[Rfam]
RNA sequence: CCUGGGCCUUCGGCCCAGGCUGUGAUAUGGCGGGCCUUCGGCCCU
Numbered sequence: 001c002c003u004g005g006g007c008c009u010u011c012g013g014c015c016c017a018g019g020c021u022g023u024g025a026u027a028u029g030g031c032g033g034g035c036c037u038u039c040g041g042c043c044c045u
Stems, first nucleotide, its partner, number of pairs: 001019008032044005

Record summary:
The record is a 45-nucleotide RNA from Bryocella elongata, which matches "Acido-Lenti-1 RNA" in Rfam. The family's consensus secondary structure is taken from published work.